[Rfam]
RNA sequence: GUGUUUUUCAUGGUAUUAGAUUUAAGGUUAACAAAAGAUUGAUUGUCGAGAGACAAUCAUUUCUUUUUUA
Numbered sequence: 001g002u003g004u005u006u007u008u009c010a011u012g013g014u015a016u017u018a019g020a021u022u023u024a025a026g027g028u029u030a031a032c033a034a035a036a037g038a039u040u041g042a043u044u045g046u047c048g049a050g051a052g053a054c055a056a057u058c059a060u061u062u063c064u065u066u067u068u069u070a
Base pairs, nucleotide, nucleotide: 041058042057043056044055045054046053047052
A member of the RNA family "Bacteroidetes FopS (family of paralogous sRNAs)" from Muribaculaceae bacterium Isolate-002, 70 nucleotides long.
Gene Ontology term of the family: sRNA-mediated gene silencing.
It scores 83 bits against the family's covariance model.
On this family, see Ruttiger et al., Nat Commun 2025: "The global RNA-binding protein RbpB is a regulator of polysaccharide utilization in Bacteroides thetaiotaomicron".
The family's RNA type in Rfam is small RNA.